[Rfam]
RNA sequence: UGUGCGGGUCGCGACUGGCGCAGCGGGUGGGUCACCACCGGGGAGCGACGCAGCAGCAAGACCACGGGUCGAACGCCUGGGCCCCCGGU
Numbered sequence: 001u002g003u004g005c006g007g008g009u010c011g012c013g014a015c016u017g018g019c020g021c022a023g024c025g026g027g028u029g030g031g032u033c034a035c036c037a038c039c040g041g042g043g044a045g046c047g048a049c050g051c052a053g054c055a056g057c058a059a060g061a062c063c064a065c066g067g068g069u070c071g072a073a074c075g076c077c078u079g080g081g082c083c084c085c086c087g088g089u
Stems, first nucleotide, its partner, number of pairs: 003055003007051001008049005015042002017077004027038004066084005